[Rfam]
RNA sequence: GAAUGACCAACGCCGAAUGCUUGCCGUUCCGCCGGCAAGCAGCGGGGGACCCAUUGGCCGUCCAGUACGGCCCGGGGCGAAUCACCGGCAUGACGCCGGCGUAGCGCUGCUCUUUCUGCGCGAGCCCGACAGCUAACCCCGCAGGCACGGAGAAAGAGAAA
Numbered sequence: 001g002a003a004u005g006a007c008c009a010a011c012g013c014c015g016a017a018u019g020c021u022u023g024c025c026g027u028u029c030c031g032c033c034g035g036c037a038a039g040c041a042g043c044g045g046g047g048g049a050c051c052c053a054u055u056g057g058c059c060g061u062c063c064a065g066u067a068c069g070g071c072c073c074g075g076g077g078c079g080a081a082u083c084a085c086c087g088g089c090a091u092g093a094c095g096c097c098g099g100c101g102u103a104g105c106g107c108u109g110c111u112c113u114u115u116c117u118g119c120g121c122g123a124g125c126c127c128g129a130c131a132g133c134u135a136a137c138c139c140c141g142c143a144g145g146c147a148c149g150g151a152g153a154a155a156g157a158g159a160a161a
Stems, first nucleotide, its partner, number of pairs: 012146003018041009042142006052074001075127003083101001085099002104121004